[Rfam]
RNA: MIR162_1 microRNA precursor family
RNA sequence: GUGAAAGAUGCUGGAGGCAGCGGUUGAUCGAUCUCUUUGUGGGAAUUUUUGAAAAACAAAAUUAAAAGCAUGAACAGAUCGAUAAACCUGUGCAUCCAGCGGUCGCCUC
Numbered sequence: 001g002u003g004a005a006a007g008a009u010g011c012u013g014g015a016g017g018c019a020g021c022g023g024u025u026g027a028u029c030g031a032u033c034u035c036u037u038u039g040u041g042g043g044a045a046u047u048u049u050u051g052a053a054a055a056a057c058a059a060a061a062u063u064a065a066a067a068g069c070a071u072g073a074a075c076a077g078a079u080c081g082a083u084a085a086a087c088c089u090g091u092g093c094a095u096c097c098a099g100c101g102g103u104c105g106c107c108u109c
Base pairs, nucleotide, nucleotide: 013097014096015095018092019091022088023087024086025085027083028082029081030080031079032078033077036074037073038072